[Rfam]
RNA sequence: UCAUCUACGAAGGAGCUCUCUUCAGUCCAGUCCAAGGCAGCGGAGGGCUGACACUCGGCUGCUGACUCGUUGGUUCAAAAGCUCAUCGAUCAACGAAUGCACAGGAAAAACAUAUUACGAUGCGUUUCUGAUCCAACGAUGCAGGAGCUGCGUUCAGUUCUAGCUGUCACGCCUUGGACUGAAGGGAGCUCCCUCUUGUCGAUUC
Numbered sequence: 001u002c003a004u005c006u007a008c009g010a011a012g013g014a015g016c017u018c019u020c021u022u023c024a025g026u027c028c029a030g031u032c033c034a035a036g037g038c039a040g041c042g043g044a045g046g047g048c049u050g051a052c053a054c055u056c057g058g059c060u061g062c063u064g065a066c067u068c069g070u071u072g073g074u075u076c077a078a079a080a081g082c083u084c085a086u087c088g089a090u091c092a093a094c095g096a097a098u099g100c101a102c103a104g105g106a107a108a109a110a111c112a113u114a115u116u117a118c119g120a121u122g123c124g125u126u127u128c129u130g131a132u133c134c135a136a137c138g139a140u141g142c143a144g145g146a147g148c149u150g151c152g153u154u155c156a157g158u159u160c161u162a163g164c165u166g167u168c169a170c171g172c173c174u175u176g177g178a179c180u181g182a183a184g185g186g187a188g189c190u191c192c193c194u195c196u197u198g199u200c201g202a203u204u205c
Stems, first nucleotide, its partner, number of pairs: 013191008023181007036168001059147002062144003068138004076130001
RNA: MIR159 microRNA precursor family